[Rfam]
RNA: mir-233 microRNA precursor family
RNA sequence: CUCUGUCCCGCUCAUCCUGUUGUUCCAAUAUUCCAACAGCCCAGUGAUUAUUGAGCAAUGCGCAUGUGCGGGACAGAU
Number, nucleotide and partner (000 for none) at each position: 001c000002u077003c076004u075005g074006u073007c072008c071009c070010g069011c068012u000013c066014a065015u064016c000017c062018u060019g059020u058021u057022g056023u055024u054025c053026c000027a052028a051029u050030a049031u000032u047033c046034c000035a000036a000037c000038a000039g000040c000041c000042c000043a000044g000045u000046g033047a032048u000049u030050a029051u028052u027053g025054a024055g023056c022057a021058a020059u019060g018061c000062g017063c000064a015065u014066g013067u000068g011069c010070g009071g008072g007073a006074c005075a004076g003077a002078u000